[Rfam]
RNA sequence: UAAAUAUGACGGCCUAAUCUCAAAUGAGAACGGAGGACCCAAUUUUAUGGGGUUAAUUCUACUAUGUAGAAGGGAUGAAAUCACUCUUUCGCCAUCCUACCCGCCAGCUAACUUCGUCGGCUAAAGCGAAGGAGGUC
Numbered sequence: 001u002a003a004a005u006a007u008g009a010c011g012g013c014c015u016a017a018u019c020u021c022a023a024a025u026g027a028g029a030a031c032g033g034a035g036g037a038c039c040c041a042a043u044u045u046u047a048u049g050g051g052g053u054u055a056a057u058u059c060u061a062c063u064a065u066g067u068a069g070a071a072g073g074g075a076u077g078a079a080a081u082c083a084c085u086c087u088u089u090c091g092c093c094a095u096c097c098u099a100c101c102c103g104c105c106a107g108c109u110a111a112c113u114u115c116g117u118c119g120g121c122u123a124a125a126g127c128g129a130a131g132g133a134g135g136u137c
Stems, first nucleotide, its partner, number of pairs: 011122004018029003030117006040049002050102003058070004073097004